[Rfam]
RNA sequence: ACCAUCCUUUUCUCAGGGUUGGGCUACUGUCCAAUGAGCAUCUAGAGAGGGCAGUACUACUAGCGCCUACACAACAUACUGGCAUCAACUAGAGCUUUGCUUUAUCAUGGUGCAAUUUUUGGAAAA
Numbered sequence: 001a002c003c004a005u006c007c008u009u010u011u012c013u014c015a016g017g018g019u020u021g022g023g024c025u026a027c028u029g030u031c032c033a034a035u036g037a038g039c040a041u042c043u044a045g046a047g048a049g050g051g052c053a054g055u056a057c058u059a060c061u062a063g064c065g066c067c068u069a070c071a072c073a074a075c076a077u078a079c080u081g082g083c084a085u086c087a088a089c090u091a092g093a094g095c096u097u098u099g100c101u102u103u104a105u106c107a108u109g110g111u112g113c114a115a116u117u118u119u120u121g122g123a124a125a126a
Base pairs, nucleotide, nucleotide: 006018007017008016009015021060023058026055027054028053029052030051031050032049039045082113083112084111085110086109087108090104091103092102093101094100095099